[Rfam]
RNA sequence: CCCGCCACUGUACGUGUCUGGUGACACAGUGACUCGUAUAGUCCAGAGGUGAGCUGACAGAAAAUGCCAACCUAGGAAACAGGGUUACUCUCCCUGUGGGUAACUCUGUGCCGAAGGCUGGGGACAGGA
Number, nucleotide and partner (000 for none) at each position: 001c000002c000003c000004g000005c049006c048007a000008c046009u045010g044011u000012a000013c000014g000015u000016g000017u000018c036019u000020g034021g033022u031023g030024a000025c000026a000027c000028a000029g000030u023031g022032a000033c021034u020035c000036g018037u000038a000039u000040a000041g000042u000043c000044c010045a009046g008047a000048g006049g005050u000051g000052a000053g000054c000055u000056g000057a000058c000059a000060g000061a000062a000063a000064a000065u122066g000067c121068c120069a119070a000071c117072c116073u115074a000075g112076g111077a000078a000079a000080c108081a107082g106083g105084g104085u103086u000087a000088c100089u099090c098091u000092c000093c000094c000095u000096g000097u000098g090099g089100g088101u000102a000103a085104c084105u083106c082107u081108g080109u000110g000111c076112c075113g000114a000115a073116g072117g071118c000119u069120g068121g067122g065123g000124a000125c000126a000127g000128g000129a000
The record is a 129-nucleotide RNA sequence from Penelope pileata, which matches "Small nucleolar RNA SNORA65" in Rfam. The base pairs follow the family's consensus structure, which was predicted with RNAalifold. The family is grouped with related families in Rfam's "SNORA65 clan". A reference for the family is Huttenhofer et al. (2001), "RNomics: an experimental approach that identifies 201 candidates for novel, small, non-messenger RNAs in mouse", EMBO J. U65 belongs to the H/ACA class of snoRNAs which are thought to guide the sites of modification of uridines to pseudouridines. Taxonomically the source falls in Penelope (Eukaryota, Deuterostomia, Amniota, Dinosauria). The family's RNA type in Rfam is H/ACA-box small nucleolar RNA.